[Rfam]
Source information:
Rfam assigns this 91-nucleotide RNA sequence from Siansivirga zeaxanthinifaciens to the family "Flavo-1 RNA". By type it is a small RNA.
RNA sequence: UAAUAGCCUGUUAUUUUGCGUUAGGGAUAGUAGUGGAAAUCCUUUUUGAGAGGCACGAACAAAAAGAUUGUAACGUAUAGCCCGACCUUUA
Numbered sequence: 001u002a003a004u005a006g007c008c009u010g011u012u013a014u015u016u017u018g019c020g021u022u023a024g025g026g027a028u029a030g031u032a033g034u035g036g037a038a039a040u041c042c043u044u045u046u047u048g049a050g051a052g053g054c055a056c057g058a059a060c061a062a063a064a065a066g067a068u069u070g071u072a073a074c075g076u077a078u079a080g081c082c083c084g085a086c087c088u089u090u091a
Base pairs, nucleotide, nucleotide: 024083025082026081028079029078033074034073038069039068040067041066044064045063046062047061048060